Rfam assigns this 70-nucleotide sequence from Oreotrochilus melanogaster to the family "Small nucleolar RNA SNORD82". snoRNA U82 or Z25 is found in both humans and mice. The match comes from Rfam's covariance-model search (59 bits). The source organism's lineage runs through Eukaryota, Eumetazoa, Deuterostomia, Archosauria and Oreotrochilus.

RNA sequence: UGCACAGAUGAUGAUUAUAAGGGACUUAAUACUGAACUGUGAUGUCACUUCUAAGCAGAAACUGAUGUGC
Numbered sequence: 001u002g003c004a005c006a007g008a009u010g011a012u013g014a015u016u017a018u019a020a021g022g023g024a025c026u027u028a029a030u031a032c033u034g035a036a037c038u039g040u041g042a043u044g045u046c047a048c049u050u051c052u053a054a055g056c057a058g059a060a061a062c063u064g065a066u067g068u069g070c
Stems, first nucleotide, its partner, number of pairs: 002070005